U7 small nuclear RNA: a 62-nucleotide sequence from Nomascus leucogenys. It scores 56 bits against the family's covariance model. Animal histone pre-mRNAs are spliced by a different mechanism than nuclear pre-mRNAs and self-splicing introns.

RNA sequence: AACUGUUACAGCUCUUUUCAAAUUUGUCUAGCAGGCUUUUUGGGUUAAGUCAGAAAGUCCCC
Numbered sequence: 001a002a003c004u005g006u007u008a009c010a011g012c013u014c015u016u017u018u019c020a021a022a023u024u025u026g027u028c029u030a031g032c033a034g035g036c037u038u039u040u041u042g043g044g045u046u047a048a049g050u051c052a053g054a055a056a057g058u059c060c061c062c
Stems, first nucleotide, its partner, number of pairs: 034059010
Dot-bracket structure: .................................((((((((((......))))))))))...